[Rfam]
RNA sequence: UGCAGAGUAGAUUUCAAAGCGUUAAGUGCUAGGUGAACAGGGAGUUGUCACUUGGACGAAAAGUUAAGUCUUGCGGUUUUGGAGUCGCAUCCCGCUGCU
Numbered sequence: 001u002g003c004a005g006a007g008u009a010g011a012u013u014u015c016a017a018a019g020c021g022u023u024a025a026g027u028g029c030u031a032g033g034u035g036a037a038c039a040g041g042g043a044g045u046u047g048u049c050a051c052u053u054g055g056a057c058g059a060a061a062a063g064u065u066a067a068g069u070c071u072u073g074c075g076g077u078u079u080u081g082g083a084g085u086c087g088c089a090u091c092c093c094g095c096u097g098c099u
Stems, first nucleotide, its partner, number of pairs: 002098004010086010020075003026057002029055008040092003044088001061072003
RNA: THF (Tetrahydrofolate) riboswitch aptamer
Organism: Butyrivibrio fibrisolvens